[Rfam]
RNA sequence: UCGUCGAUCAUUUUUGUGGAUUAGCAAUUUUGUUCUCGAAUAAUUGCAUAGUCACAAAAGUGAUGGACGG
Numbered sequence: 001u002c003g004u005c006g007a008u009c010a011u012u013u014u015u016g017u018g019g020a021u022u023a024g025c026a027a028u029u030u031u032g033u034u035c036u037c038g039a040a041u042a043a044u045u046g047c048a049u050a051g052u053c054a055c056a057a058a059a060g061u062g063a064u065g066g067a068c069g070g
Base pairs, nucleotide, nucleotide: 002069003068004067005066008063009062010061011060012059013058014057015056016055017054018053019052024047025046026045027044028043029042
Dot-bracket structure: .((((..((((((((((((....((((((............))))))....))))))))))))..)))).